[Rfam]
RNA: Small nucleolar RNA SNORD81
RNA sequence: CACAAUAUAUGACGGUCCAUCCCAACUUGACCUCUCUCACCAGUUACUUGAUGAUAAUCGGAUCUGAUAUUCUG
Dot-bracket structure: ((.((((............................................................)))).))